Rfam assigns this 133-nucleotide RNA sequence from Pipistrellus kuhlii to the family "U11 spliceosomal RNA".
RNA sequence: AAAAAGGGCUUCCGUCCUGAGCGGCACACGCAGAGCAGCUUGGAUGCUCCACCUGUGGAAUCAGCAUCAAGAGAUUUCAGAAGCAUCAUUUUUGGUUCUUGGGCAGCUGGUGAUCAUUGGUCCUGGCACCCAC
Numbered sequence: 001a002a003a004a005a006g007g008g009c010u011u012c013c014g015u016c017c018u019g020a021g022c023g024g025c026a027c028a029c030g031c032a033g034a035g036c037a038g039c040u041u042g043g044a045u046g047c048u049c050c051a052c053c054u055g056u057g058g059a060a061u062c063a064g065c066a067u068c069a070a071g072a073g074a075u076u077u078c079a080g081a082a083g084c085a086u087c088a089u090u091u092u093u094g095g096u097u098c099u100u101g102g103g104c105a106g107c108u109g110g111u112g113a114u115c116a117u118u119g120g121u122c123c124u125g126g127c128a129c130c131c132a133c
Stems, first nucleotide, its partner, number of pairs: 008084005014025003027055002030052001033049005056079007101131003106127005112122004